[Rfam]
RNA sequence: UGUUGAGGCCUCCUCAUUGUGCAUGCUGUGUGUGUAUUCUAUCCGUAUCUCACAGCGCCUGCAAUGUGGAGGCUGAGACA
Numbered sequence: 001u002g003u004u005g006a007g008g009c010c011u012c013c014u015c016a017u018u019g020u021g022c023a024u025g026c027u028g029u030g031u032g033u034g035u036a037u038u039c040u041a042u043c044c045g046u047a048u049c050u051c052a053c054a055g056c057g058c059c060u061g062c063a064a065u066g067u068g069g070a071g072g073c074u075g076a077g078a079c080a
Stems, first nucleotide, its partner, number of pairs: 012069002015066007024057001026055005
RNA: mir-460 microRNA precursor family